[Rfam]
RNA sequence: UGGGCAUCAAUGAAGAUUGAAUUCCUUGUUAUCCUUGCACAAUGAUUGUUAAGUGAUGAAAAUUAAGGGGGAAAGUUUGAAACCUGAGAUGCUC
Number, nucleotide and partner (000 for none) at each position: 001u000002g094003g093004g092005c091006a090007u089008c088009a000010a000011u000012g000013a000014a000015g000016a000017u000018u000019g000020a000021a000022u000023u000024c000025c000026u000027u000028g000029u000030u000031a000032u000033c000034c000035u000036u000037g000038c000039a000040c000041a000042a000043u000044g000045a000046u000047u000048g000049u000050u000051a000052a000053g000054u000055g000056a000057u000058g000059a000060a000061a000062a000063u000064u000065a000066a000067g000068g000069g000070g000071g000072a000073a000074a000075g000076u000077u000078u000079g000080a000081a000082a000083c000084c000085u000086g000087a000088g008089a007090u006091g005092c004093u003094c002